[Rfam]
RNA: c-di-GMP-I riboswitch aptamer
RNA sequence: AAAUAAAAUGGGCAGCCCUGCUGAAAAGCAGGUACGCAAAGAUAUGGGUCGUCGAUGCUUAGAUAAGCAUACCGAUCGCCAGUCUGCGUUU
Numbered sequence: 001a002a003a004u005a006a007a008a009u010g011g012g013c014a015g016c017c018c019u020g021c022u023g024a025a026a027a028g029c030a031g032g033u034a035c036g037c038a039a040a041g042a043u044a045u046g047g048g049u050c051g052u053c054g055a056u057g058c059u060u061a062g063a064u065a066a067g068c069a070u071a072c073c074g075a076u077c078g079c080c081a082g083u084c085u086g087c088g089u090u091u
Base pairs, nucleotide, nucleotide: 012037013036017032018031019030020029021028022027040085041084042083043082045081046080047079048076049075050074055070056069057068058067059066060065